Background:
This 331-nucleotide RNA sequence from Trachymyrmex septentrionalis belongs to the Rfam family "Arthropod 7SK RNA". It is annotated as a non-coding RNA gene. Its Rfam clan is "7SK clan". The match comes from Rfam's covariance-model search (77 bits). For this family Rfam cites "Arthropod 7SK RNA" (Gruber et al., Mol Biol Evol, 2008).
[Rfam]
RNA sequence: GGAAGCGUGUGUGGGAUAGCAUAACUAAGCAUCGAUAGUUACAUAGAUCACUAUGUGGCAGAUCUGCUCAGUUAGUGUUAUCAUAUAUCAUGUUGAGCUAUGUCAGAUUGUUCAGAUAAGUCUCACGAUUUCUCAGACUCCCGAUUGCGCAUGCAAACAUGUUUAAGAACAUAGACGUUUUACGUCCAUUAAACGCGCACGCCUGCACGGUCGAGUCUCUAUUCCUCGUAGUACCGCGACUUCCAAAUUUGGGGGGUAAUCGAUUUGGUCAGAGGUAAUUUGUCGCUUCCACAUGCAGGCACUGCUGAUGGCGGUAUGCCAUCUUUUUUUG
Numbered sequence: 001g002g003a004a005g006c007g008u009g010u011g012u013g014g015g016a017u018a019g020c021a022u023a024a025c026u027a028a029g030c031a032u033c034g035a036u037a038g039u040u041a042c043a044u045a046g047a048u049c050a051c052u053a054u055g056u057g058g059c060a061g062a063u064c065u066g067c068u069c070a071g072u073u074a075g076u077g078u079u080a081u082c083a084u085a086u087a088u089c090a091u092g093u094u095g096a097g098c099u100a101u102g103u104c105a106g107a108u109u110g111u112u113c114a115g116a117u118a119a120g121u122c123u124c125a126c127g128a129u130u131u132c133u134c135a136g137a138c139u140c141c142c143g144a145u146u147g148c149g150c151a152u153g154c155a156a157a158c159a160u161g162u163u164u165a166a167g168a169a170c171a172u173a174g175a176c177g178u179u180u181u182a183c184g185u186c187c188a189u190u191a192a193a194c195g196c197g198c199a200c201g202c203c204u205g206c207a208c209g210g211u212c213g214a215g216u217c218u219c220u221a222u223u224c225c226u227c228g229u230a231g232u233a234c235c236g237c238g239a240c241u242u243c244c245a246a247a248u249u250u251g252g253g254g255g256g257u258a259a260u261c262g263a264u265u266u267g268g269u270c271a272g273a274g275g276u277a278a279u280u281u282g283u284c285g286c287u288u289c290c291a292c293a294u295g296c297a298g299g300c301a302c303u304g305c306u307g308a309u310g311g312c313g314g315u316a317u318g319c320c321a322u323c324u325u326u327u328u329u330u331g
Stems, first nucleotide, its partner, number of pairs: 001290007013091001015089003025071002029067003034064003038059004044053001298320003301315005
Dot-bracket structure: (((((((.....(.(((.......((..(((..(((.((((..(........)..))))..))))))..))...............))).)................................................................................................................................................................................................))))))).......((((((((.....)))))..)))...........